[Rfam]
RNA sequence: UCCAGUGUGGUUCGCAACCCUCCCACAAUAAAAAACUAAGGAAAC
Numbered sequence: 001u002c003c004a005g006u007g008u009g010g011u012u013c014g015c016a017a018c019c020c021u022c023c024c025a026c027a028a029u030a031a032a033a034a035a036c037u038a039a040g041g042a043a044a045c
Stems, first nucleotide, its partner, number of pairs: 006027005016037001

A member of the RNA family "PreQ1 (pre queuosine) riboswitch aptamer" from Neisseria bacilliformis, 45 nucleotides long. Rfam 15.1 lists 873 matches to the family in 692 species. It scores 55 bits against the family's covariance model. Lineage of the source: Bacteria > Pseudomonadati > Betaproteobacteria > Neisseria > Neisseria bacilliformis.